[Rfam]
This 108-nucleotide RNA sequence from Sinocyclocheilus anshuiensis belongs to the Rfam family "Vault RNA". Rfam describes the family as follows. This family of RNAs are found as part of the enigmatic vault ribonucleoprotein complex. The organism belongs to Sinocyclocheilus, within Eukaryota. The match comes from Rfam's covariance-model search (55 bits). Rfam classes the family as a non-coding RNA gene.

RNA sequence: GCGUUGGUUUAGCUCAGUGGUUACUUCCGAUUGUUACCAGAUCACACUCUAGGGCCGCCGGGAAGCCGGUGACCGUGGAUCGAACCUCGGGCUCUGUCCAACGUUUUC
Numbered sequence: 001g002c003g004u005u006g007g008u009u010u011a012g013c014u015c016a017g018u019g020g021u022u023a024c025u026u027c028c029g030a031u032u033g034u035u036a037c038c039a040g041a042u043c044a045c046a047c048u049c050u051a052g053g054g055c056c057g058c059c060g061g062g063a064a065g066c067c068g069g070u071g072a073c074c075g076u077g078g079a080u081c082g083a084a085c086c087u088c089g090g091g092c093u094c095u096g097u098c099c100a101a102c103g104u105u106u107u108c
Stems, first nucleotide, its partner, number of pairs: 002103006012092004017088001019086002025084003029080001